Shown here is a 132-nucleotide RNA sequence from Penicillium oxalicum, a member of the family "U4 spliceosomal RNA". The family's consensus secondary structure is taken from published work. A reference for the family is Plaschka et al. (2017), "Structure of a pre-catalytic spliceosome", Nature. By type it is a spliceosomal small nuclear RNA. Its family is annotated with U4 snRNP and spliceosomal tri-snRNP complex assembly in the Gene Ontology.
[Rfam]
RNA sequence: AUCCUAGUGCACGGGCUUUACACGUAUCAGUGAGGAGACAUCCGAGAUCGUGUUUUUGCUGGUUGAAAACUACCUAUUGACCACUCUGCCUGGUCUUCGGAUCGGUCAGGAAUUUUUGAACAAACAAAGUUG
Numbered sequence: 001a002u003c004c005u006a007g008u009g010c011a012c013g014g015g016c017u018u019u020a021c022a023c024g025u026a027u028c029a030g031u032g033a034g035g036a037g038a039c040a041u042c043c044g045a046g047a048u049c050g051u052g053u054u055u056u057u058g059c060u061g062g063u064u065g066a067a068a069a070c071u072a073c074c075u076a077u078u079g080a081c082c083a084c085u086c087u088g089c090c091u092g093g094u095c096u097u098c099g100g101a102u103c104g105g106u107c108a109g110g111a112a113u114u115u116u117u118g119a120a121c122a123a124a125c126a127a128a129g130u131u132g
Stems, first nucleotide, its partner, number of pairs: 020053005026048003034043003085110004090105006125132002